[Rfam]
RNA: Small nucleolar RNA Z221/R21b
Organism: Gossypium arboreum
RNA sequence: GGGCAAUGAUGAGAAAGUUAGAGAAAGUCAUGCACCACGCUGAUUUUAAUUUGUGCUGAUAAGUCUCUCUACCCAUAUUUUUUUCUGAGCUC
Numbered sequence: 001g002g003g004c005a006a007u008g009a010u011g012a013g014a015a016a017g018u019u020a021g022a023g024a025a026a027g028u029c030a031u032g033c034a035c036c037a038c039g040c041u042g043a044u045u046u047u048a049a050u051u052u053g054u055g056c057u058g059a060u061a062a063g064u065c066u067c068u069c070u071a072c073c074c075a076u077a078u079u080u081u082u083u084u085c086u087g088a089g090c091u092c
Stems, first nucleotide, its partner, number of pairs: 001092004